[Rfam]
RNA sequence: GUGAGGCGCGCCUAGGGUUCCGCGUCGAUGCGACGGACUGGUCCGAGAGGUGCAGGCGCCCCGCGCACCGGGGCGUUCCACGGCGGGACAAAAGCCCGGGAGAC
Number, nucleotide and partner (000 for none) at each position: 001g000002u000003g000004a000005g000006g000007c000008g053009c052010g051011c050012c049013u000014a000015g044016g043017g000018u000019u000020c041021c040022g038023c035024g034025u033026c032027g031028a000029u000030g000031c027032g026033a025034c024035g023036g000037a000038c022039u000040g021041g020042u000043c016044c015045g000046a000047g000048a000049g012050g011051u010052g009053c008054a000055g077056g076057c075058g074059c073060c072061c071062c070063g000064c000065g000066c000067a000068c000069c000070g062071g061072g060073g059074c058075g057076u056077u055078c000079c099080a000081c102082g000083g000084c000085g097086g096087g095088a000089c000090a000091a000092a000093a000094g000095c087096c086097c085098g000099g079100g000101a000102g081103a000104c000
RNA: Guanidine-I riboswitch aptamer